RNA sequence: AACUAUGACUCGGGGUGCCCUUGCUUAACCGCAGGCUGAGAUAAAACCCGUACCACCUGAACUGGAUAAUGCCAGCGGAGGGAAGUCAGAUGCCCCAGCC
Numbered sequence: 001a002a003c004u005a006u007g008a009c010u011c012g013g014g015g016u017g018c019c020c021u022u023g024c025u026u027a028a029c030c031g032c033a034g035g036c037u038g039a040g041a042u043a044a045a046a047c048c049c050g051u052a053c054c055a056c057c058u059g060a061a062c063u064g065g066a067u068a069a070u071g072c073c074a075g076c077g078g079a080g081g082g083a084a085g086u087c088a089g090a091u092g093c094c095c096c097a098g099c100c
Stems, first nucleotide, its partner, number of pairs: 006088005011050004016044001017036003056081003062075004